RNA: Mammalian CPEB3 ribozyme
Organism: Alligator sinensis
RNA sequence: AACUGCUAUAAUGGCCAUACCAGAAGCGUUCAGGCCGUGGCCCCUGUCAGACUCCAGUGAGUCUGCACGUUCUGCU
Numbered sequence: 001a002a003c004u005g006c007u008a009u010a011a012u013g014g015c016c017a018u019a020c021c022a023g024a025a026g027c028g029u030u031c032a033g034g035c036c037g038u039g040g041c042c043c044c045u046g047u048c049a050g051a052c053u054c055c056a057g058u059g060a061g062u063c064u065g066c067a068c069g070u071u072c073u074g075c076u
Stems, first nucleotide, its partner, number of pairs: 013042004019076001021074005026038003048065007